[Rfam]
RNA sequence: AUUUAAUUUCAAGGCGGGGUGCAAUUCCCCACCGGCGGUAUUUUCAUAUUUGAUGGAUAAGCCCGCAAGCCUUUACAGGCAUGAUUUGGUGAGAUUCCAAAGCCGACAGUAUAGUCUGGAUGAGAGAAAUUAGAU
Numbered sequence: 001a002u003u004u005a006a007u008u009u010c011a012a013g014g015c016g017g018g019g020u021g022c023a024a025u026u027c028c029c030c031a032c033c034g035g036c037g038g039u040a041u042u043u044u045c046a047u048a049u050u051u052g053a054u055g056g057a058u059a060a061g062c063c064c065g066c067a068a069g070c071c072u073u074u075a076c077a078g079g080c081a082u083g084a085u086u087u088g089g090u091g092a093g094a095u096u097c098c099a100a101a102g103c104c105g106a107c108a109g110u111a112u113a114g115u116c117u118g119g120a121u122g123a124g125a126g127a128a129a130u131u132a133g134a135u
Stems, first nucleotide, its partner, number of pairs: 003133008017029003031115002033105002035066004061103002071079001085101005107118003
A member of the RNA family "FMN riboswitch aptamer (RFN element)" from Clostridium sp. CAG:122, 135 nucleotides long. A reference for the family is Gelfand et al. (1999), "A conserved RNA structure element involved in the regulation of bacterial riboflavin synthesis genes", Trends Genet. NCBI's taxonomy places the organism under Bacteria, Bacillati, Bacillota, Clostridia, Clostridium. It scores 115 bits against the family's covariance model.